RNA sequence: AUUGACGGCGUAGUAGACACUAUUAUAAGAAAUAGCCGACCAAUAGCACUCCAUCACAAUGGAGAAACCUGUAGUUAACGUGGACGUAGACCCCCAGAGUCCGUUUGUCGCUCAGCUGCAGAAGAGUUUCCCGCAAUUUGAGGUAGUAGCACAGCAGGCCACUCCAAAUGACCAUGCUAACGCCAGAGCAUUUUCGCAUCUGGCCAGUAAACUAAUCGAGCUGGAGAUUCCGAUCACAGCGACGAUUUUGGACAUUGGCAGCGCACCAGCUCGUAGAAU
Dot-bracket structure: ....((((........................................((((..(....(((.(((...............................(((......(.....).)))..........))))))......).)).))......((((((.((.......)).)).))))...((((((((......)).)))))).........(((((........................))))).......................)))).....

Background:
The family of this 279-nucleotide RNA sequence from Alphavirus sindbis is "Togavirus 5' plus strand cis-regulatory element". Rfam's curators put it in the seed alignment. This family represents a Togavirus virus 5' plus strand cis-regulatory element which is thought to be essential for both plus and minus strand RNA synthesis.Genus Alphaviruse belongs to the Togaviridae family. Alpha viruses contain secondary structural motifs in the 5' UTR that allow them to avoid detection by IFIT1. The literature on the family includes a 2001 paper in RNA by Frolov et al., "Cis-acting RNA elements at the 5' end of Sindbis virus genome RNA regulate minus- and plus-strand RNA synthesis". The family's consensus secondary structure was predicted with PFOLD.